[Rfam]
RNA sequence: UGGUAGAUGCACCCUGGUUGAAACCCUAGAUGAUUAAAUCUAGGGAUUUUUUUU
Numbered sequence: 001u002g003g004u005a006g007a008u009g010c011a012c013c014c015u016g017g018u019u020g021a022a023a024c025c026c027u028a029g030a031u032g033a034u035u036a037a038a039u040c041u042a043g044g045g046a047u048u049u050u051u052u053u054u
Stems, first nucleotide, its partner, number of pairs: 002013003024045008
Rfam assigns this 54-nucleotide sequence from Limnoraphis robusta to the family "Nitrogen stress-induced RNA 1". Rfam 15.1 lists 962 matches to the family in 163 species. A reference for the family is Ionescu et al. (2010), "Heterocyst-specific transcription of NsiR1, a non-coding RNA encoded in a tandem array of direct repeats in cyanobacteria", J Mol Biol. The organism belongs to Limnoraphis robusta, within Bacteria.